[Rfam]
mir-1182 microRNA precursor family: a 96-nucleotide sequence from Homo sapiens.

RNA sequence: GGGACUUGUCACUGCCUGUCUCCUCCCUCUCCAGCAGCGACUGGAUUCUGGAGUCCAUCUAGAGGGUCUUGGGAGGGAUGUGACUGUUGGGAAGCC
Numbered sequence: 001g002g003g004a005c006u007u008g009u010c011a012c013u014g015c016c017u018g019u020c021u022c023c024u025c026c027c028u029c030u031c032c033a034g035c036a037g038c039g040a041c042u043g044g045a046u047u048c049u050g051g052a053g054u055c056c057a058u059c060u061a062g063a064g065g066g067u068c069u070u071g072g073g074a075g076g077g078a079u080g081u082g083a084c085u086g087u088u089g090g091g092a093a094g095c096c
Base pairs, nucleotide, nucleotide: 002096003095005094006093007092009090010089011088014087015086018084019083020082022080024078025077026076027075028074029073031072032071033070034069039068040067041066042065046064047063048062049061050060051059052058
Rfam's curators put it in the seed alignment.